[Rfam]
RNA sequence: GGUAAUAAACCAUUUUUGAAAUAAGCGGAGCGGACCCGGGGGCGGUACCCGGCGUCUCCACCAUUUUAUGGGGACGAAAUAGGAUCGACGUACGUAAUAAAGAGGAAUGUUUUACCCGGCAUGGUACCACCGUUAGCGGACUAAAAAAAAUAAGUGCAAACACAAAUCGCGCUUCUGGUCGUAGAGUAGCUAAUAGCAAUCGUCGCGUUCGUCGCACAGUUGCUACUAAAGUUGCUGCUUAA
Numbered sequence: 001g002g003u004a005a006u007a008a009a010c011c012a013u014u015u016u017u018g019a020a021a022u023a024a025g026c027g028g029a030g031c032g033g034a035c036c037c038g039g040g041g042g043c044g045g046u047a048c049c050c051g052g053c054g055u056c057u058c059c060a061c062c063a064u065u066u067u068a069u070g071g072g073g074a075c076g077a078a079a080u081a082g083g084a085u086c087g088a089c090g091u092a093c094g095u096a097a098u099a100a101a102g103a104g105g106a107a108u109g110u111u112u113u114a115c116c117c118g119g120c121a122u123g124g125u126a127c128c129a130c131c132g133u134u135a136g137c138g139g140a141c142u143a144a145a146a147a148a149a150a151u152a153a154g155u156g157c158a159a160a161c162a163c164a165a166a167u168c169g170c171g172c173u174u175c176u177g178g179u180c181g182u183a184g185a186g187u188a189g190c191u192a193a194u195a196g197c198a199a200u201c202g203u204c205g206c207g208u209u210c211g212u213c214g215c216a217c218a219g220u221u222g223c224u225a226c227u228a229a230a231g232u233u234g235c236u237g238c239u240u241a242a
Stems, first nucleotide, its partner, number of pairs: 001116005014106004026094002030091003036052005053076007117132003
Dot-bracket structure: (((((........((((........((..(((...(((((.......)))))(((((((..........)))))))............))).))........)))).....)))))(((..........)))..............................................................................................................
RNA: permuted transfer-messenger RNA
Organism: Pseudomonadota bacterium